[Rfam]
RNA sequence: GCCCUCUUCAACGCUGCGUUUCCAUGCUACAAACAGAGACAAUAGUUCCCCCCUUCACCGAGGACUCUCUUGUCUCAACCUCGCAUGUGGGAAAUUCGGAGAAUGCUUCAAACCCCCAACAUCCCUCCCUCUCGCUCCCGGCGAUGCACAGGUCUGCUAGUGAUGGCCUGGCGUCACUCGACGUCUGCGGUUUCAGGCAUCAGAAAUCUCAGAGCCCCGGCCGGGGAGCCCCAUGUUCCCCGCGACCGGGUGUUUCCUCUAUGGGAAGCCGCCGCGAAGCUUGUUGGUCAACUUGAGUGCAAUACGCGGCGUGUCGUCUUCUCUCGUCUUCUAGGCUGGGAGAGGGCGGCAUAACUCAAUUCCGGUCAUUCUCUAGAGGGC
Number, nucleotide and partner (000 for none) at each position: 001g381002c380003c379004c378005u000006c000007u000008u000009c000010a000011a372012c000013g000014c000015u309016g000017c000018g000019u000020u304021u000022c000023c087024a086025u085026g084027c000028u000029a000030c000031a000032a000033a000034c000035a000036g076037a075038g074039a073040c072041a071042a000043u000044a000045g000046u000047u000048c000049c000050c000051c000052c000053c000054u000055u000056c000057a000058c000059c000060g000061a000062g000063g000064a000065c000066u000067c000068u000069c000070u000071u041072g040073u039074c038075u037076c036077a000078a000079c000080c000081u000082c000083g000084c026085a025086u024087g023088u000089g000090g000091g000092a000093a000094a000095u000096u000097c364098g363099g362100a361101g360102a000103a000104u000105g000106c279107u278108u277109c276110a000111a000112a000113c000114c000115c000116c000117c000118a000119a000120c000121a000122u000123c000124c000125c000126u000127c000128c000129c000130u000131c000132u000133c000134g000135c000136u000137c000138c000139c000140g000141g000142c000143g000144a000145u000146g000147c000148a000149c000150a000151g000152g000153u000154c000155u000156g000157c000158u000159a000160g000161u000162g000163a000164u000165g000166g000167c000168c000169u000170g185171g184172c183173g182174u181175c180176a000177c000178u000179c000180g175181a174182c173183g172184u171185c170186u000187g000188c000189g272190g000191u000192u000193u000194c000195a000196g270197g269198c268199a000200u000201c000202a000203g000204a000205a000206a000207u000208c000209u000210c000211a260212g259213a258214g000215c000216c000217c000218c000219g000220g000221c000222c000223g000224g000225g000226g000227a000228g000229c000230c000231c000232c000233a000234u000235g000236u000237u000238c000239c000240c000241c000242g000243c000244g000245a000246c000247c000248g000249g000250g000251u000252g000253u000254u000255u000256c000257c000258u213259c212260u211261a000262u000263g000264g000265g000266a000267a000268g198269c197270c196271g000272c189273c000274g000275c000276g109277a108278a107279g106280c000281u000282u000283g000284u000285u000286g000287g000288u000289c000290a000291a000292c000293u000294u000295g000296a000297g000298u000299g000300c000301a000302a000303u000304a020305c000306g000307c000308g000309g015310c000311g352312u351313g350314u349315c348316g347317u346318c345319u344320u343321c342322u341323c340324u339325c338326g337327u000328c000329u000330u000331c000332u000333a000334g000335g000336c000337u326338g325339g324340g323341a322342g321343a320344g319345g318346g317347c316348g315349g314350c313351a312352u311353a000354a000355c000356u000357c000358a000359a000360u101361u100362c099363c098364g097365g000366u000367c000368a000369u000370u000371c000372u011373c000374u000375a000376g000377a000378g004379g003380g002381c001

Rfam assigns this 381-nucleotide RNA sequence from Hapsidospora chrysogena to the family "Nuclear RNase P". Taxonomically the source falls in Hapsidospora chrysogena (Eukaryota, Opisthokonta, Ascomycota, Hypocreales). Rfam's curators write: Ribonuclease P (RNase P) is a ubiquitous endoribonuclease, found in archaea, bacteria and eukarya as well as chloroplasts and mitochondria. Its best characterised activity is the generation of mature 5'-ends of tRNAs by cleaving the 5'-leader elements of precursor-tRNAs. Cellular RNase Ps are ribonucleoproteins. RNA from bacterial RNase Ps retains its catalytic activity in the absence of the protein subunit, i.e. it is a ribozyme. Isolated eukaryotic and archaeal RNase P RNA has not been shown to retain its catalytic function, but is still essential for the catalytic activity of the holoenzyme. Although the archaeal and eukaryotic holoenzyme s have a much greater protein content than the bacterial ones, the RNA cores from all the three lineages are homologous -- helices corresponding to P1, P2, P3, P4, and P10/11 are common to all cellular RNase P RNAs. Yet, there is considerable sequence variation, particularly among the eukaryotic RNAs. The match comes from Rfam's covariance-model search (58 bits).